[Rfam]
RNA sequence: UUUUGUCUUCGGGGCGAGGCGUAAUUCCUCACCGGCGGUAGGCGCGGCCAUCGGCCCGCGCAAGUCCGCGAGCGCCUGCGGUGCAGGGUCAGCAGAUCUGGUCAGAUGCCAGAACCGACGGUCAUAGUCCGGAUGCAAGAAGACGGCC
Number, nucleotide and partner (000 for none) at each position: 001u000002u000003u146004u145005g144006u143007c142008u141009u140010c139011g000012g000013g000014g000015c000016g000017a029018g028019g027020c000021g000022u000023a000024a000025u000026u000027c019028c018029u017030c000031a128032c127033c117034g116035g069036c068037g067038g066039u000040a000041g000042g000043c000044g000045c000046g000047g000048c000049c000050a000051u000052c000053g000054g000055c000056c000057c000058g000059c000060g000061c000062a000063a000064g115065u114066c038067c037068g036069c035070g000071a000072g093073c092074g000075c000076c000077u000078g000079c000080g000081g000082u000083g000084c000085a000086g000087g000088g000089u000090c000091a000092g073093c072094a000095g000096a000097u113098c112099u111100g110101g109102u000103c000104a000105g000106a000107u000108g000109c101110c100111a099112g098113a097114a065115c064116c034117g033118a000119c131120g130121g129122u000123c000124a000125u000126a000127g032128u031129c121130c120131g119132g000133a000134u000135g000136c000137a000138a000139g010140a009141a008142g007143a006144c005145g004146g003147c000148c000
FMN riboswitch aptamer (RFN element): a 148-nucleotide RNA sequence from Ketogulonicigenium robustum. The organism belongs to Ketogulonicigenium, within Bacteria.